The family of this 131-nucleotide RNA from Merluccius polli is "Small Cajal body specific RNA 8". The family's RNA type in Rfam is small Cajal body RNA. The literature on the family includes a 2002 paper in EMBO J by Darzacq et al., "Cajal body-specific small nuclear RNAs: a novel class of 2'-O-methylation and pseudouridylation guide RNAs". Taxonomically the source falls in Merluccius (Eukaryota, Acanthomorphata, Gadariae, Merlucciidae).

[Rfam]
RNA sequence: CGGGAGGCGGAUACCUGGAUAGGGCUGAGCUGUGCUCUGUCCACCACUAGUCCUCCCUAGAGCAUACCUGCUCUCUGAUGACCGCGGUGACCUGAGAGAAAUCACCACGGACAGAUACGGAGCUGACAACC
Numbered sequence: 001c002g003g004g005a006g007g008c009g010g011a012u013a014c015c016u017g018g019a020u021a022g023g024g025c026u027g028a029g030c031u032g033u034g035c036u037c038u039g040u041c042c043a044c045c046a047c048u049a050g051u052c053c054u055c056c057c058u059a060g061a062g063c064a065u066a067c068c069u070g071c072u073c074u075c076u077g078a079u080g081a082c083c084g085c086g087g088u089g090a091c092c093u094g095a096g097a098g099a100a101a102u103c104a105c106c107a108c109g110g111a112c113a114g115a116u117a118c119g120g121a122g123c124u125g126a127c128a129a130c131c
Stems, first nucleotide, its partner, number of pairs: 002057006016043003022037004068125001070123005082110003087105004

Annotation
Rfam's curators write: scaRNAs are a specific class of small nuclear RNAs which localise to the Cajal bodies and guide the modification of RNA polymerase II transcribed spliceosomal RNAs U1, U2, U4, U5 and U12. U92 belong to the H/ACA box class of guide RNAs as it has the predicted hairpin-hinge-hairpin-tail structure, conserved H/ACA-box motifs and is found associated with GAR1.